[Rfam]
RNA: mir-216 microRNA precursor family
Organism: Labrus bergylta
RNA sequence: UGACUGGGUAAUCUCUGCAGGCAACUGUGAUGAUGUUUUAUAUUCCCACAAUCACCUGGAGAGAUUCUGCAGUUC
Numbered sequence: 001u002g003a004c005u006g007g008g009u010a011a012u013c014u015c016u017g018c019a020g021g022c023a024a025c026u027g028u029g030a031u032g033a034u035g036u037u038u039u040a041u042a043u044u045c046c047c048a049c050a051a052u053c054a055c056c057u058g059g060a061g062a063g064a065u066u067c068u069g070c071a072g073u074u075c
Stems, first nucleotide, its partner, number of pairs: 003073004010066007020057002024052001026050004